A member of the RNA family "Glycine riboswitch aptamer" from Pseudoduganella armeniaca, 86 nucleotides long. The pairing is the family consensus, mapped onto this sequence. The organism belongs to Pseudoduganella, within Bacteria. The match comes from Rfam's covariance-model search (54 bits). About the family: This family represents the bacterial glycine riboswitch.
[Rfam]
RNA sequence: GAUCCUCGACCGGGAGAGCGCAGCCAUGCUGCCGCCGAAGGGGCAUUACCCGAAAACUCUCAGGCACAAAGGACCGGUCAGGGGCU
Numbered sequence: 001g002a003u004c005c006u007c008g009a010c011c012g013g014g015a016g017a018g019c020g021c022a023g024c025c026a027u028g029c030u031g032c033c034g035c036c037g038a039a040g041g042g043g044c045a046u047u048a049c050c051c052g053a054a055a056a057c058u059c060u061c062a063g064g065c066a067c068a069a070a071g072g073a074c075c076g077g078u079c080a081g082g083g084g085c086u
Stems, first nucleotide, its partner, number of pairs: 006081001008079006020032004034065003037061002041059003047053001